[Rfam]
RNA: small nucleolar RNA snoR117
Organism: Jatropha curcas
Nucleotides: 085
Stems, first nucleotide, its partner, number of pairs: 001084004
Number, partner (000 for none) and nucleotide at each position: 001084g002083g003082c004081c005000u006000g007000u008000g009000a010000u011000g012000c013000a014000u015000a016000u017000g018000c019000a020000a021000u022000u023000u024000g025000u026000c027000c028000g029000u030000a031000c032000c033000a034000u035000c036000u037000g038000a039000u040000g041000a042000u043000a044000u045000u046000c047000u048000c049000a050000g051000u052000u053000g054000a055000u056000g057000u058000a059000u060000c061000g062000a063000a064000g065000c066000a067000u068000u069000g070000u071000u072000a073000g074000c075000u076000a077000c078000u079000g080000a081004g082003g083002c084001c085000u